[Rfam]
RNA sequence: UAUUAGACCUGAUUGAAACGGUAUCCUUUUUAACUGUCCGUUCAAGUGAAUUUUGAAGAAUGAAAAAAUUGGUAUCGAGAACAACAAUAAAAAAGAUAUAGUGGAAAGCAGGAAAUGGC
Numbered sequence: 001u002a003u004u005a006g007a008c009c010u011g012a013u014u015g016a017a018a019c020g021g022u023a024u025c026c027u028u029u030u031u032a033a034c035u036g037u038c039c040g041u042u043c044a045a046g047u048g049a050a051u052u053u054u055g056a057a058g059a060a061u062g063a064a065a066a067a068a069u070u071g072g073u074a075u076c077g078a079g080a081a082c083a084a085c086a087a088u089a090a091a092a093a094a095g096a097u098a099u100a101g102u103g104g105a106a107a108g109c110a111g112g113a114a115a116u117g118g119c
Stems, first nucleotide, its partner, number of pairs: 009111003013107002018102002023097003029092003033088001035086003

A member of the RNA family "Flavo-1 RNA" from Polaribacter sp. ALD11, 119 nucleotides long. Lineage of the source: Bacteria > Pseudomonadati > Flavobacteriia > Flavobacteriaceae > Polaribacter. Rfam classes the family as a small RNA. A search with the family's covariance model found it, with a score of 57 bits.